Shown here is a 62-nucleotide sequence from Mus musculus, a member of the family "mir-136 microRNA precursor family".
The literature on the family includes a 2004 paper in Dev Biol by Suh et al., "Human embryonic stem cells express a unique set of microRNAs".
The family's consensus secondary structure was predicted with RNAalifold.
Taxonomically the source falls in Mus (Eukaryota, Sarcopterygii, Theria, Muridae).
RNA sequence: GAGGACUCCAUUUGUUUUGAUGAUGGAUUCUUAAGCUCCAUCAUCGUCUCAAAUGAGUCUUC
Numbered sequence: 001g002a003g004g005a006c007u008c009c010a011u012u013u014g015u016u017u018u019g020a021u022g023a024u025g026g027a028u029u030c031u032u033a034a035g036c037u038c039c040a041u042c043a044u045c046g047u048c049u050c051a052a053a054u055g056a057g058u059c060u061u062c
Stems, first nucleotide, its partner, number of pairs: 001062008010054005018046010